[Rfam]
RNA sequence: GAAAAAUGAAGAUAUUCUGACUGCUUCCUGACUCCUUCAGUGAAGACCUCAGAUCCAACUCUGAUUUCACUGUUUCA
Numbered sequence: 001g002a003a004a005a006a007u008g009a010a011g012a013u014a015u016u017c018u019g020a021c022u023g024c025u026u027c028c029u030g031a032c033u034c035c036u037u038c039a040g041u042g043a044a045g046a047c048c049u050c051a052g053a054u055c056c057a058a059c060u061c062u063g064a065u066u067u068c069a070c071u072g073u074u075u076c077a
Base pairs, nucleotide, nucleotide: 001068002067003066004065

Rfam assigns this 77-nucleotide RNA from Falco tinnunculus to the family "Small nucleolar RNA SNORD19". The match comes from Rfam's covariance-model search (37 bits). For this family Rfam cites "RNomics: an experimental approach that identifies 201 candidates for novel, small, non-messenger RNAs in mouse" (Huttenhofer et al., EMBO J, 2001). It is annotated as a C/D-box small nucleolar RNA. The organism belongs to Falco, within Eukaryota.